[Rfam]
RNA: sRNA-Xcc1
Nucleotides: 087
Stems, first nucleotide, its partner, number of pairs: 001079009012043003016038001025034003045064005
Number, partner (000 for none) and nucleotide at each position: 001079g002078u003077c004076g005075g006074g007073a008072g009071g010000g011000c012043u013042g014041c015000g016038a017000a018000u019000a020000c021000a022000a023000g024000a025034c026033c027032c028000g029000a030000a031000a032027g033026g034025g035000a036000a037000a038016u039000a040000a041014g042013c043012g044000c045064a046063c047062c048061g049060u050000c051000u052000c053000u054000c055000u056000c057000a058000g059000c060049a061048c062047g063046g064045u065000u066000c067000u068000g069000a070000a071009c072008c073007u074006c075005c076004c077003g078002a079001c080000a081000c082000c083000c084000c085000u086000c087000c